[Rfam]
RNA sequence: UCUGGCAAUGACGACACACUUGCCCUCACUGAGAGCCGUGCUGGCUGAUGAGAGCAUCCCACAACGCUCAGUGGAGCCGAGCCAGA
Numbered sequence: 001u002c003u004g005g006c007a008a009u010g011a012c013g014a015c016a017c018a019c020u021u022g023c024c025c026u027c028a029c030u031g032a033g034a035g036c037c038g039u040g041c042u043g044g045c046u047g048a049u050g051a052g053a054g055c056a057u058c059c060c061a062c063a064a065c066g067c068u069c070a071g072u073g074g075a076g077c078c079g080a081g082c083c084a085g086a
Stems, first nucleotide, its partner, number of pairs: 001086006
Dot-bracket structure: ((((((..........................................................................))))))

Description
The family of this 86-nucleotide RNA sequence from Pluvianellus socialis is "Small nucleolar RNA SNORD103/SNORD85". The family's RNA type in Rfam is C/D-box small nucleolar RNA. The match comes from Rfam's covariance-model search (62 bits).